[Rfam]
RNA sequence: UUGCCUACCUCGGGGUGCCCUUUGGGCUGAGAUGCAAUCCUGCGAACCCGUUGAACCUGAACCGGUUAAUUCCGGCGGAGGGAAGGUGACGCGGCGCAGA
Numbered sequence: 001u002u003g004c005c006u007a008c009c010u011c012g013g014g015g016u017g018c019c020c021u022u023u024g025g026g027c028u029g030a031g032a033u034g035c036a037a038u039c040c041u042g043c044g045a046a047c048c049c050g051u052u053g054a055a056c057c058u059g060a061a062c063c064g065g066u067u068a069a070u071u072c073c074g075g076c077g078g079a080g081g082g083a084a085g086g087u088g089a090c091g092c093g094g095c096g097c098a099g100a
Base pairs, nucleotide, nucleotide: 006088007087008086009085010084011050012049013048014047016044017027018026019025020024034043035042036041056081057080058079062075063074064073065072
Background
The family of this 100-nucleotide RNA sequence from Pseudooceanicola atlanticus is "TPP riboswitch aptamer (THI element)". The match comes from Rfam's covariance-model search (73 bits). Pairs were carried over by alignment from the consensus structure, which is taken from published work.